[Rfam]
RNA: Acido-Lenti-1 RNA
Organism: Verrucomicrobia bacterium LW23
RNA sequence: CCCAGGGCUUACGCCCUGGGCUUUAGGCCUUCGCGCCUGCGGCGCU
Numbered sequence: 001c002c003c004a005g006g007g008c009u010u011a012c013g014c015c016c017u018g019g020g021c022u023u024u025a026g027g028c029c030u031u032c033g034c035g036c037c038u039g040c041g042g043c044g045c046u
Base pairs, nucleotide, nucleotide: 001020002019003018004017005016006015007014008013033045034044035043036042037041